[Rfam]
A member of the RNA family "Makes More Granules Regulator RNA (mmgR)" from Aureimonas altamirensis, 79 nucleotides long. The match comes from Rfam's covariance-model search (47 bits). Rfam classes the family as a small RNA. The pairing is the family consensus, mapped onto this sequence. NCBI's taxonomy places the organism under Bacteria, Pseudomonadota, Alphaproteobacteria, Hyphomicrobiales, Aureimonas.

RNA sequence: UGUCGGCGCCCGUUUCGGGCGUUCCUCCCUAGACUUGGCCGCGCCACGCCUUUGCGUCGCGCGGUAUUUUUUUGCCUAU
Numbered sequence: 001u002g003u004c005g006g007c008g009c010c011c012g013u014u015u016c017g018g019g020c021g022u023u024c025c026u027c028c029c030u031a032g033a034c035u036u037g038g039c040c041g042c043g044c045c046a047c048g049c050c051u052u053u054g055c056g057u058c059g060c061g062c063g064g065u066a067u068u069u070u071u072u073u074g075c076c077u078a079u
Stems, first nucleotide, its partner, number of pairs: 008020004039064006046057002